The record is a 152-nucleotide RNA from Exiguobacterium chiriqhucha, which matches "glmS glucosamine-6-phosphate activated ribozyme aptamer" in Rfam. It is annotated as a riboswitch. The match comes from Rfam's covariance-model search (85 bits). Pairs were carried over by alignment from the consensus structure, which is taken from published work. Lineage of the source: Bacteria > Bacillati > Bacilli > Caryophanales > Exiguobacterium chiriqhucha. Gene Ontology terms of the family: catalytic activity and regulation of gene expression.

RNA sequence: AGUACGAAACAAGCGCCAGAACUCUACGGAGUUGACGAGGUUGGAGGUUAUCGAGUUUUCGGCGGAUGCCUCCUAGUCGCCUGUCACGACUACAAGCAAACCCUCAAAACGCCCGGGCGACCGGACGGCCAAAGGGGAGCGCGUUGACAGCU
Dot-bracket structure: ...................(((((....))))).........(((((...((((....))))......)))))((((((.......))))))...((...((.......((.((((....)))).))........))...))..........